[Rfam]
Source information:
This 172-nucleotide sequence from Calorimonas adulescens belongs to the Rfam family "Group II catalytic intron D1-D4-3". The pairing is the family consensus, mapped onto this sequence. The family has 406 seed sequences and 4,274 matches in Rfam 15.1. The organism belongs to Calorimonas, within Bacteria.
RNA sequence: CCUAUUGUGAGGCAGAAUCUGAAGGAAACUGUAGGUAAAGCCACAGAUUGAGGAACACGAACCGCAUAUAAGGUUAUACAGUUUGGAUGAGUUUGUAUCACAAAACGAAAUAUAGCGCUGCCAAGGGACUGUGUAGUGAAUGCGGCAGGUAUACGGGGUGAAGGCGAAUUAU
Numbered sequence: 001c002c003u004a005u006u007g008u009g010a011g012g013c014a015g016a017a018u019c020u021g022a023a024g025g026a027a028a029c030u031g032u033a034g035g036u037a038a039a040g041c042c043a044c045a046g047a048u049u050g051a052g053g054a055a056c057a058c059g060a061a062c063c064g065c066a067u068a069u070a071a072g073g074u075u076a077u078a079c080a081g082u083u084u085g086g087a088u089g090a091g092u093u094u095g096u097a098u099c100a101c102a103a104a105a106c107g108a109a110a111u112a113u114a115g116c117g118c119u120g121c122c123a124a125g126g127g128a129c130u131g132u133g134u135a136g137u138g139a140a141u142g143c144g145g146c147a148g149g150u151a152u153a154c155g156g157g158g159u160g161a162a163g164g165c166g167a168a169u170u171a172u
Stems, first nucleotide, its partner, number of pairs: 002015002005012002028172001031169002035165002040159003044155001046150001048148003062145006073137003077133007085113001087111002091106004